[Rfam]
The family of this 143-nucleotide RNA sequence from Myotis davidii is "Small nucleolar RNA SNORA48". Rfam 15.1 lists 2,109 matches to the family in 150 species. Gene Ontology terms of the family: RNA processing and nucleolus. About the family: The snoRNA ACA 48 has been identified to guide pseudouridylation of the residue U3797 in the 28S rRNA subunit. A reference for the family is Ofengand and Bakin (1997), "Mapping to nucleotide resolution of pseudouridine residues in large subunit ribosomal RNAs from representative eukaryotes, prokaryotes, archaebacteria, mitochondria and chloroplasts", J Mol Biol. Rfam classes the family as an H/ACA-box small nucleolar RNA.
RNA sequence: AUUCCCUGGCAAUGGUCAAGGAGACACCUGAUUGGUGGUGUUGCUCUUAAAACAGUCAGGGGCAAGACACGUACUGUCCAAAGUUUAUCCUACCUUGAUGUCAGUGUUGGUGGCCAGAGCUGUUUCAUGCCUGGGGCACAUUA
Numbered sequence: 001a002u003u004c005c006c007u008g009g010c011a012a013u014g015g016u017c018a019a020g021g022a023g024a025c026a027c028c029u030g031a032u033u034g035g036u037g038g039u040g041u042u043g044c045u046c047u048u049a050a051a052a053c054a055g056u057c058a059g060g061g062g063c064a065a066g067a068c069a070c071g072u073a074c075u076g077u078c079c080a081a082a083g084u085u086u087a088u089c090c091u092a093c094c095u096u097g098a099u100g101u102c103a104g105u106g107u108u109g110g111u112g113g114c115c116a117g118a119g120c121u122g123u124u125u126c127a128u129g130c131c132u133g134g135g136g137c138a139c140a141u142u143a
Stems, first nucleotide, its partner, number of pairs: 003062006013054002019048003023042006083137004097131001099129001104126001108122002111119001